[Rfam]
Description: Rfam assigns this 132-nucleotide sequence from Rhizobium etli to the family "TPP riboswitch aptamer (THI element)". Rfam links the family to the GO term thiamine pyrophosphate binding. The source organism's lineage runs through Bacteria, Pseudomonadati, Pseudomonadota, Alphaproteobacteria and Rhizobium.

RNA sequence: ACCAUUCACCAGGGGUGCCCCGGCAAGGGGCUGAGAUUCUGCUGAACAAUACGGCUUUGCCUGUUGUGGCGCGGUGACCCGUUGAACCUGAUCCAGUUCAUACUGGCGUAGGGACGGUGCGGACCUGCGGCU
Numbered sequence: 001a002c003c004a005u006u007c008a009c010c011a012g013g014g015g016u017g018c019c020c021c022g023g024c025a026a027g028g029g030g031c032u033g034a035g036a037u038u039c040u041g042c043u044g045a046a047c048a049a050u051a052c053g054g055c056u057u058u059g060c061c062u063g064u065u066g067u068g069g070c071g072c073g074g075u076g077a078c079c080c081g082u083u084g085a086a087c088c089u090g091a092u093c094c095a096g097u098u099c100a101u102a103c104u105g106g107c108g109u110a111g112g113g114a115c116g117g118u119g120c121g122g123a124c125c126u127g128c129g130g131c132u
Stems, first nucleotide, its partner, number of pairs: 007119004012080003017031005038074002087112004093106004